[Rfam]
RNA sequence: GGUGAGCAGCACUUCACAACGGACCGUCCGGCACGUACCUGCCGGUGAAGGGAAACACCA
Numbered sequence: 001g002g003u004g005a006g007c008a009g010c011a012c013u014u015c016a017c018a019a020c021g022g023a024c025c026g027u028c029c030g031g032c033a034c035g036u037a038c039c040u041g042c043c044g045g046u047g048a049a050g051g052g053a054a055a056c057a058c059c060a
Stems, first nucleotide, its partner, number of pairs: 010052001012050005028045006
The record is a 60-nucleotide RNA sequence from Brachybacterium muris, which matches "msiK RNA" in Rfam.
The base pairs follow the family's consensus structure, which is taken from published work.
A search with the family's covariance model found it, with a score of 62 bits.